[Rfam]
RNA sequence: GGGAAAUGGGGGUGGGGCUGGGCUGAGCCACAGCCCUGAGCAGUGGGCUCA
Numbered sequence: 001g002g003g004a005a006a007u008g009g010g011g012g013u014g015g016g017g018c019u020g021g022g023c024u025g026a027g028c029c030a031c032a033g034c035c036c037u038g039a040g041c042a043g044u045g046g047g048c049u050c051a
Stems, first nucleotide, its partner, number of pairs: 014037007025050005

Rfam assigns this 51-nucleotide RNA from Crocuta crocuta to the family "Ma3 gene ribosomal frameshift signal". Pairs were carried over by alignment from the consensus structure, which is taken from published work. Lineage of the source: Eukaryota > Craniata > Gnathostomata > Dipnotetrapodomorpha > Crocuta. Gene Ontology term of the family: translational frameshifting. The match comes from Rfam's covariance-model search (36 bits).